[Rfam]
RNA sequence: GGUGCUGUAGCUCAGAUGGUAGAGCAAAGGACUGAAAAUCCUUGUGUCGGCAGUUCGAUUCUUCCCAGCACCA
Number, nucleotide and partner (000 for none) at each position: 001g072002g071003u070004g069005c068006u067007g066008u000009a000010g025011c024012u023013c022014a000015g000016a000017u000018g000019g000020u000021a000022g013023a012024g011025c010026a000027a043028a042029g041030g040031a039032c000033u000034g000035a000036a000037a000038a000039u031040c030041c029042u028043u027044g000045u000046g000047u000048c000049g065050g064051c000052a062053g061054u000055u000056c000057g000058a000059u000060u000061c053062u052063u000064c050065c049066c007067a006068g005069c004070a003071c002072c001073a000
Rfam assigns this 73-nucleotide sequence from Bacteroidales bacterium WCE2004 to the family "tRNA". Rfam links the family to the GO term triplet codon-amino acid adaptor activity. Lineage of the source: Bacteria > Pseudomonadati > Bacteroidota > Bacteroidia > Bacteroidales. A search with the family's covariance model found it, with a score of 66 bits.